[Rfam]
RNA sequence: GGCGGGGGGCAGGGAGUCCCUCAGCCUGAAUUGCGAGAGGGCGCAGGCCAGGCUGAGGGACCCCACCAGUGCAUG
Numbered sequence: 001g002g003c004g005g006g007g008g009g010c011a012g013g014g015a016g017u018c019c020c021u022c023a024g025c026c027u028g029a030a031u032u033g034c035g036a037g038a039g040g041g042c043g044c045a046g047g048c049c050a051g052g053c054u055g056a057g058g059g060a061c062c063c064c065a066c067c068a069g070u071g072c073a074u075g
Base pairs, nucleotide, nucleotide: 004072006070009067013064014063016061017060018059019058020057021056022055023054024053025052026051028049031046032045033044034043035042
A member of the RNA family "mir-9193 microRNA precursor family" from Cnephaeus nilssonii, 75 nucleotides long.
Its family is annotated with RISC complex and miRNA-mediated post-transcriptional gene silencing in the Gene Ontology.
The family's consensus secondary structure was predicted with RNAalifold.